The record is a 390-nucleotide RNA sequence from Aliiruegeria lutimaris, which matches "Bacterial RNase P class A" in Rfam. By type it is a ribozyme. It scores 278 bits against the family's covariance model. Pairs were carried over by alignment from the consensus structure, which is taken from published work.
Nucleotides: 390
Base pairs, nucleotide, nucleotide: 001386002385003384004383005382006381007380008379009378010377011375012339013338014337015336016335017334018333020052021051023049024048025047028044057373058372059371061370062369063368064367065366066226067225068224069223075271079222080221081220082219083218084098085097086096087095088094099113100111101110102109103108114217115216119215120214121211122210123209136157137156138153139152140151141150142149143148165183166182167181168180169179184206185204186203187202188201189200190199191198192197230296231295232294233293240287241286242285243284244283263277264276265275266274303322304321305320306319307318308317309316310315
Number, partner (000 for none) and nucleotide at each position: 001386g002385c003384g004383g005382a006381u007380g008379g009378c010377c011375g012339g013338a014337u015336g016335a017334c018333c019000g020052c021051g022000g023049g024048g025047u026000u027000c028044g029000g030000c031000g032000g033000u034000g035000c036000u037000u038000g039000c040000a041000u042000c043000g044028c045000c046000u047025g048024c049023c050000g051021c052020g053000a054000g055000g056000a057373a058372a059371g060000u061370c062369c063368g064367g065366a066226c067225u068224c069223c070000c071000u072000g073000a074000a075271g076000c077000a078000a079222c080221g081220g082219u083218g084098c085097c086096g087095g088094g089000u090000a091000a092000c093000g094088c095087c096086c097085g098084g099113g100111c101110g102109g103108g104000g105000a106000a107000a108103c109102c110101c111100g112000a113099c114217g115216g116000a117000a118000a119215g120214c121211g122210c123209c124000a125000c126000a127000g128000a129000g130000a131000a132000c133000a134000g135000a136157c137156c138153g139152c140151u141150g142149c143148g144000u145000u146000c147000g148143c149142g150141c151140a152139g153138c154000a155000a156137g157136g158000g159000u160000g161000a162000a163000a164000c165183g166182g167181u168180g169179g170000a171000g172000u173000a174000a175000g176000a177000g178000c179169c180168c181167a182166c183165c184206g185204c186203g187202g188201g189200g190199c191198u192197g193000g194000c195000a196000a197192c198191a199190g200189u201188c202187c203186c204185g205000g206184c207000a208000c209123g210122g211121c212000a213000a214120g215119c216115c217114c218083c219082a220081c221080c222079g223069g224068g225067a226066g227000c228000a229000a230296u231295g232294c233293c234000a235000g236000a237000u238000a239000g240287g241286a242285c243284c244283u245000c246000c247000g248000c249000g250000g251000g252000g253000c254000c255000a256000g257000a258000c259000c260000c261000c262000a263277g264276g265275g266274c267000c268000g269000c270000u271075u272000c273000a274266g275265c276264c277263c278000c279000a280000g281000g282000c283244a284243g285242g286241u287240c288000g289000g290000g291000u292000a293233g294232g295231c296230a297000g298000c299000u300000u301000g302000a303322g304321c305320g306319u307318g308317u309316c310315g311000g312000c313000g314000a315310c316309g317308g318307c319306a320305c321304g322303u323000c324000u325000a326000g327000a328000g329000g330000a331000a332000u333018g334017g335016u336015c337014a338013u339012c340000g341000a342000a343000g344000g345000g346000g347000c348000g349000c350000g351000a352000g353000c354000c355000c356000u357000g358000g359000a360000a361000c362000a363000g364000a365000a366065u367064c368063c369062g370061g371059c372058u373057u374000a375011c376000a377010g378009g379008c380007c381006a382005u383004c384003c385002g386001c387000g388000c389000u390000a